Rfam assigns this 256-nucleotide RNA sequence from Anaerofustis stercorihominis to the family "T-box leader". About the family: Uncharged tRNA acts as the effector for transcription antitermination of genes in the T-box leader family. Taxonomically the source falls in Anaerofustis stercorihominis (Bacteria, Bacillota, Clostridia, Anaerofustis). The family's RNA type in Rfam is cis-regulatory leader.
RNA sequence: UGAAACACAAAGAAGAGGAAUAGUAAGUUUUCUAAGAAGUUACAGAGAGCUGUUGGCUGGUGUGAAACAGUGCUUAAUGAAUUCCGAACUCGCCUCAGAGUGAUUUGCUGAAAUCAUAUAGAGAGUAAGUUAAAUCGGGUGUCACCCGUUACAGUGACAGGAUAUCGGCACACUGCCCGUAUCUUUAAUGAGUGUAUUCUUAUUUAUAAGGAUAAAUUAGAGUGGUACCGCGGAAAUAUUACCUUUCGUCUCUUAU
Numbered sequence: 001u002g003a004a005a006c007a008c009a010a011a012g013a014a015g016a017g018g019a020a021u022a023g024u025a026a027g028u029u030u031u032c033u034a035a036g037a038a039g040u041u042a043c044a045g046a047g048a049g050c051u052g053u054u055g056g057c058u059g060g061u062g063u064g065a066a067a068c069a070g071u072g073c074u075u076a077a078u079g080a081a082u083u084c085c086g087a088a089c090u091c092g093c094c095u096c097a098g099a100g101u102g103a104u105u106u107g108c109u110g111a112a113a114u115c116a117u118a119u120a121g122a123g124a125g126u127a128a129g130u131u132a133a134a135u136c137g138g139g140u141g142u143c144a145c146c147c148g149u150u151a152c153a154g155u156g157a158c159a160g161g162a163u164a165u166c167g168g169c170a171c172a173c174u175g176c177c178c179g180u181a182u183c184u185u186u187a188a189u190g191a192g193u194g195u196a197u198u199c200u201u202a203u204u205u206a207u208a209a210g211g212a213u214a215a216a217u218u219a220g221a222g223u224g225g226u227a228c229c230g231c232g233g234a235a236a237u238a239u240u241a242c243c244u245u246u247c248g249u250c251u252c253u254u255a256u
Stems, first nucleotide, its partner, number of pairs: 007101002015096004027084001030081002038074003049071006104133002107130003136148003195214007219253004230249005
Dot-bracket structure: ......((......((((........(..((......(((........((((((...........))))))))).....))..)........))))...))..((.(((..................))).))..(((.......)))..............................................(((((((......)))))))....((((.......(((((..........)))))))))...